[Rfam]
RNA sequence: CCUCUGGAAAGCCCAGGCCUGGAAGCAGGCAUGCCCGGAAACGGGCGCUGGCACCGACGGAGUAAGGCGCGCAACGCCCGCGCUGAAUCUCUCAGGUCAUCGGACAGAGG
Numbered sequence: 001c002c003u004c005u006g007g008a009a010a011g012c013c014c015a016g017g018c019c020u021g022g023a024a025g026c027a028g029g030c031a032u033g034c035c036c037g038g039a040a041a042c043g044g045g046c047g048c049u050g051g052c053a054c055c056g057a058c059g060g061a062g063u064a065a066g067g068c069g070c071g072c073a074a075c076g077c078c079c080g081c082g083c084u085g086a087a088u089c090u091c092u093c094a095g096g097u098c099a100u101c102g103g104a105c106a107g108a109g110g
Base pairs, nucleotide, nucleotide: 001110002109003108004107005106006105013051014050015049016048053097054096055095056093057092060091061090062089066084067083068082069081070080071079